[Rfam]
RNA sequence: CUCUUAUCGAGAGCGGCGGAGGGACUGGCCCGACGAAGCCCGGCAACCUCGUUCGUACCCACACGAACGAAGAGGUGCUAAAUCCAGCAGGUGUGCGCAUGCGCAUCUGGCAGAUAAGAG
Numbered sequence: 001c002u003c004u005u006a007u008c009g010a011g012a013g014c015g016g017c018g019g020a021g022g023g024a025c026u027g028g029c030c031c032g033a034c035g036a037a038g039c040c041c042g043g044c045a046a047c048c049u050c051g052u053u054c055g056u057a058c059c060c061a062c063a064c065g066a067a068c069g070a071a072g073a074g075g076u077g078c079u080a081a082a083u084c085c086a087g088c089a090g091g092u093g094u095g096c097g098c099a100u101g102c103g104c105a106u107c108u109g110g111c112a113g114a115u116a117a118g119a120g
Stems, first nucleotide, its partner, number of pairs: 001120008013041001015040003021031003025087004042079004047075002049070007083112001088109008
A member of the RNA family "SAM riboswitch aptamer (S box leader)" from Tumebacillus flagellatus, 120 nucleotides long.
NCBI's taxonomy places the organism under Bacteria, Bacilli, Caryophanales, Alicyclobacillaceae, Tumebacillus.